[Rfam]
RNA sequence: ACGAGACGGCCGGAUGCGCCCGGCGACUCGGAGGAUAAACUAACCGCGGAGGCCGGGCGCAGCCCCGCGCCCUCCACCACACAUGUGAGCCAGCAGCCGCUGCAACCCCAGGGAG
Number, nucleotide and partner (000 for none) at each position: 001a000002c000003g000004a000005g000006a000007c000008g000009g000010c000011c000012g000013g000014a000015u000016g000017c000018g000019c000020c000021c000022g000023g000024c000025g000026a000027c000028u000029c000030g000031g000032a000033g000034g000035a000036u000037a000038a000039a000040c000041u000042a000043a000044c000045c000046g000047c000048g075049g074050a073051g072052g071053c000054c000055g000056g066057g065058c000059g000060c000061a000062g000063c000064c000065c057066c056067g000068c000069g000070c000071c052072c051073u050074c049075c048076a000077c000078c000079a000080c000081a000082c000083a000084u000085g000086u000087g000088a000089g000090c000091c102092a101093g100094c099095a000096g000097c000098c000099g094100c093101u092102g091103c000104a000105a000106c000107c000108c000109c000110a000111g000112g000113g000114a000115g000
Notes: Shown here is a 115-nucleotide RNA sequence from Streptomyces sp. DvalAA-14, a member of the family "Streptomyces-metK RNA". The base pairs follow the family's consensus structure, which is taken from published work. Rfam classes the family as a small RNA.